Shown here is a 117-nucleotide sequence from Streptomyces sp. NWU339, a member of the family "Actinobacteria sRNA Ms_IGR-7". Rfam classes the family as a small RNA.

RNA sequence: ACGAGGUGCCUUGCUGGUUGGGCCUGAUGGAAGCGUGAGAACUCCCAUUGUUCCAGGUCAGAGGGCACCUCUUUUCGUUUCCCCGUCCACAGCCCGGCCGUCACGCGGUGGAUCGAG
Dot-bracket structure: ..((((((((((..(((.(.((..((((.(.((........)).).))))..)).).))).))))))))))...........................(((((.....)))..))..
The source organism's lineage runs through Bacteria, Bacillati, Kitasatosporales, Streptomycetaceae and Streptomyces.